[Rfam]
Rfam assigns this 76-nucleotide sequence from Acetobacterium bakii to the family "c-di-GMP-I riboswitch aptamer". The source organism's lineage runs through Bacteria, Bacillota, Eubacteriales, Eubacteriaceae and Acetobacterium.

RNA sequence: CAAUUUAAAGGGCAAAACUGUUGUGAAGCAGUGACGCAAAGCUAAAGGGACUUUUUAAAGUCAGCCAGUUAUCAGA
Numbered sequence: 001c002a003a004u005u006u007a008a009a010g011g012g013c014a015a016a017a018c019u020g021u022u023g024u025g026a027a028g029c030a031g032u033g034a035c036g037c038a039a040a041g042c043u044a045a046a047g048g049g050a051c052u053u054u055u056u057a058a059a060g061u062c063a064g065c066c067a068g069u070u071a072u073c074a075g076a
Base pairs, nucleotide, nucleotide: 012037013036017032018031019030020029021028022027040070041069042068043067047066048065049062050061051060052059053058
Rfam links the family to the GO term cyclic-di-GMP binding.